[Rfam]
RNA sequence: AUCUUCCUACUGGGCUGACGGAUACGUAGAAUUGACUACAUGCACAGUAGCACACAUCGUGUGAUAGCCGACCGUCUGGGCAAGCUUU
Numbered sequence: 001a002u003c004u005u006c007c008u009a010c011u012g013g014g015c016u017g018a019c020g021g022a023u024a025c026g027u028a029g030a031a032u033u034g035a036c037u038a039c040a041u042g043c044a045c046a047g048u049a050g051c052a053c054a055c056a057u058c059g060u061g062u063g064a065u066a067g068c069c070g071a072c073c074g075u076c077u078g079g080g081c082a083a084g085c086u087u088u
Stems, first nucleotide, its partner, number of pairs: 005052001007050006015042001017076005026039004065083001067081003
RNA: ZMP/ZTP riboswitch aptamer (pfl RNA motif)